[Rfam]
RNA sequence: GGUCCUCACUAAGACGGUGUCUCGAAAAGACUAUGUCAAGGUGGGGGAAGGCUCAUCUCAGGGUGUGGCCACGCCUUCAACUUCGGGUGCCGGGCGUCAGUCCGCCAGAGCGCAGCACACAGCGGUGCCGCUCGGGGCUGAUGACCGGAGGACGA
Dot-bracket structure: .((((((......((.(((((.......))).)))).............(((.((((....))))..)))..........................(((((((....((((...((((......)))).)))).)))))))......))))))..